The record is a 67-nucleotide sequence from Chanos chanos, which matches "MAT2A 3'UTR stem loop A" in Rfam. Pairs were carried over by alignment from the consensus structure, which is taken from published work. It scores 51 bits against the family's covariance model. The family has 20 seed sequences and 595 matches in Rfam 15.1. It is annotated as a cis-regulatory element.
RNA sequence: UCUUUCCUUCCCCAGGCCUGUAGGUGUAUACUACAGAGAAACCUUCAUGGUCCACAGGGAGGAAAGG
Numbered sequence: 001u002c003u004u005u006c007c008u009u010c011c012c013c014a015g016g017c018c019u020g021u022a023g024g025u026g027u028a029u030a031c032u033a034c035a036g037a038g039a040a041a042c043c044u045u046c047a048u049g050g051u052c053c054a055c056a057g058g059g060a061g062g063a064a065a066g067g
Stems, first nucleotide, its partner, number of pairs: 001067004008060004015052002019047002023043003026034002